The record is a 119-nucleotide RNA sequence from Glycomyces buryatensis, which matches "SAM riboswitch aptamer (S box leader)" in Rfam. The organism belongs to Glycomyces, within Bacteria.
[Rfam]
RNA sequence: ACUUCAUCCAGAGCAACUGAGGGGCCCGGCCCGACGAUGUUGCGGCAACCACCGAGCCGUCUUUCAUAGGCGCAGCGGCAGGUGCCAAAUCCGGCCCGCAUGAGCGGGGAAGAUGAGGG
Numbered sequence: 001a002c003u004u005c006a007u008c009c010a011g012a013g014c015a016a017c018u019g020a021g022g023g024g025c026c027c028g029g030c031c032c033g034a035c036g037a038u039g040u041u042g043c044g045g046c047a048a049c050c051a052c053c054g055a056g057c058c059g060u061c062u063u064u065c066a067u068a069g070g071c072g073c074a075g076c077g078g079c080a081g082g083u084g085c086c087a088a089a090u091c092c093g094g095c096c097c098g099c100a101u102g103a104g105c106g107g108g109g110a111a112g113a114u115g116a117g118g119g
Stems, first nucleotide, its partner, number of pairs: 002118007013043005021032003026094004044086004049082002052078003090111001095108005